[Rfam]
RNA sequence: GAAAAAUAAAAAAUUAAAAAAGUUUUACAGUAAGACUAGGAACCACCUCCUUGGCCGGCUCAAUCUCCCUUGAGCUGGCCUUUUC
Numbered sequence: 001g002a003a004a005a006a007u008a009a010a011a012a013a014u015u016a017a018a019a020a021a022g023u024u025u026u027a028c029a030g031u032a033a034g035a036c037u038a039g040g041a042a043c044c045a046c047c048u049c050c051u052u053g054g055c056c057g058g059c060u061c062a063a064u065c066u067c068c069c070u071u072g073a074g075c076u077g078g079c080c081u082u083u084u085c
Stems, first nucleotide, its partner, number of pairs: 038051004053080011
This 85-nucleotide RNA from Photorhabdus laumondii belongs to the Rfam family "CyaR/Rye RNA". This sRNA was originally identified in a large scale screen of E. coli. It was shown to bind Hfq and called RyeE. This sRNA has since been characterised as a post-transcriptional regulator of the 18 kDa OmpX porin in Salmonella. Phylogenetic and mutational analyses suggest that a conserved RNA hairpin of this sRNA which features a C-rich apical loop, acts to sequester the Shine-Dalgarno sequence of ompX mRNA and inhibits translational initiation. The expression of this sRNA has been shown to be tightly controlled by the cyclic AMP receptor protein, CRP and has been renamed CyaR (cyclic AMP-activated RNA). The base pairs follow the family's consensus structure, which was predicted with PFOLD. The organism belongs to Photorhabdus laumondii subsp. laumondii, within Bacteria. The family's RNA type in Rfam is small RNA. Rfam's curators put it in the seed alignment.